RNA sequence: UUGUUGGCUGGCGCUGCAUCAUCAAGAUUCACAUGCUAUAAUGCACAGAAUAAUUAAUCAAAGUUUAAUUACUUUUUUACUUCUAAUUUUCUGUUUUUUGAAUGUCAUGAGAAUCUUGAUGAUGCUGCAUCGGCUAUUGA
Numbered sequence: 001u002u003g004u005u006g007g008c009u010g011g012c013g014c015u016g017c018a019u020c021a022u023c024a025a026g027a028u029u030c031a032c033a034u035g036c037u038a039u040a041a042u043g044c045a046c047a048g049a050a051u052a053a054u055u056a057a058u059c060a061a062a063g064u065u066u067a068a069u070u071a072c073u074u075u076u077u078u079a080c081u082u083c084u085a086a087u088u089u090u091c092u093g094u095u096u097u098u099u100g101a102a103u104g105u106c107a108u109g110a111g112a113a114u115c116u117u118g119a120u121g122a123u124g125c126u127g128c129a130u131c132g133g134c135u136a137u138u139g140a
Stems, first nucleotide, its partner, number of pairs: 010131002013128002016125015032109004

Record summary
mir-172 microRNA precursor family: a 140-nucleotide RNA sequence from Acer yangbiense. The literature on the family includes a 2004 paper in Mol Cell by Jones-Rhoades and Bartel, "Computational Identification of Plant MicroRNAs and Their Targets, Including a Stress-Induced miRNA". The match comes from Rfam's covariance-model search (82 bits). About the family: mir-172 has been experimentally verified in Arabidopsis thaliana. This family is thought to target mRNAs coding for APETALA2-like transcription factors. The mature sequence is excised from the 3' arm of the hairpin. Gene Ontology terms of the family: miRNA-mediated post-transcriptional gene silencing and RISC complex.